This 128-nucleotide RNA from Corynebacterium striatum belongs to the Rfam family "atpB RNA".
The family's RNA type in Rfam is cis-regulatory element.
[Rfam]
RNA sequence: CUGUCACUUCUUCGAAGAUGUGCGACGGAGUCCGAAGUCGUGACAGAGAGCUUGAGACGUCCAUCGCACCGUCCGCAAUAUCCAAUUGCGGCGGCCCUAACACGGGAGAGAACGCUGAGCGUUACAAC
Dot-bracket structure: (((((((..(((......................)))..)))))))......................((((.(((((.......)))))))))..................................
Pairs were carried over by alignment from the consensus structure, which is taken from published work. The sequence is in the family's curated seed alignment.